[Rfam]
Background
Rfam assigns this 178-nucleotide RNA sequence from Nannospalax galili to the family "Small nucleolar RNA SNORA81". Taxonomically the source falls in Nannospalax (Eukaryota, Opisthokonta, Metazoa, Eumetazoa). A search with the family's covariance model found it, with a score of 188 bits. Gene Ontology terms of the family: RNA processing and nucleolus.

RNA sequence: ACCUUCUUGUAUAAGCACUGUGCUAAAAUUACAGAAACUAGGAUUAUGUCUUGGUUUUUGUAAUAAUGCUAACAGAGUACACACAAGAAAAAAAGUAACUGCACUGGAUCCCAAUGUCUGGGGUGGACCUCGUUCUUAAUGCCCAGUGUCCUUUGUCGUAAGAGUUGGUGCAAUAUAA
Numbered sequence: 001a002c003c004u005u006c007u008u009g010u011a012u013a014a015g016c017a018c019u020g021u022g023c024u025a026a027a028a029u030u031a032c033a034g035a036a037a038c039u040a041g042g043a044u045u046a047u048g049u050c051u052u053g054g055u056u057u058u059u060g061u062a063a064u065a066a067u068g069c070u071a072a073c074a075g076a077g078u079a080c081a082c083a084c085a086a087g088a089a090a091a092a093a094a095g096u097a098a099c100u101g102c103a104c105u106g107g108a109u110c111c112c113a114a115u116g117u118c119u120g121g122g123g124u125g126g127a128c129c130u131c132g133u134u135c136u137u138a139a140u141g142c143c144c145a146g147u148g149u150c151c152u153u154u155g156u157c158g159u160a161a162g163a164g165u166u167g168g169u170g171c172a173a174u175a176u177a178a
Base pairs, nucleotide, nucleotide: 018077019076021074022073024071025070028067029066030065031064034058035057037055038054039053040052041051042050043049044048100172101171102170103169104168105167106166107165120149122147124145125144126143